A member of the RNA family "mir-1285 microRNA precursor family" from Papio anubis, 97 nucleotides long.
RNA sequence: CAGGCUUCUCACUAUGUUGCCCAGGCUGGUCUCGAACUCCUGGCUUCAACUCUGCCAGAAGUUCAAGACCAGCCUGGGCAACAUAGUGAGACCCAAU
Numbered sequence: 001c002a003g004g005c006u007u008c009u010c011a012c013u014a015u016g017u018u019g020c021c022c023a024g025g026c027u028g029g030u031c032u033c034g035a036a037c038u039c040c041u042g043g044c045u046u047c048a049a050c051u052c053u054g055c056c057a058g059a060a061g062u063u064c065a066a067g068a069c070c071a072g073c074c075u076g077g078g079c080a081a082c083a084u085a086g087u088g089a090g091a092c093c094c095a096a097u
Stems, first nucleotide, its partner, number of pairs: 007091008019079007032072001034070001

The match comes from Rfam's covariance-model search (57 bits). NCBI's taxonomy places the organism under Eukaryota, Gnathostomata, Mammalia, Eutheria, Papio. Gene Ontology terms of the family: miRNA-mediated post-transcriptional gene silencing and RISC complex.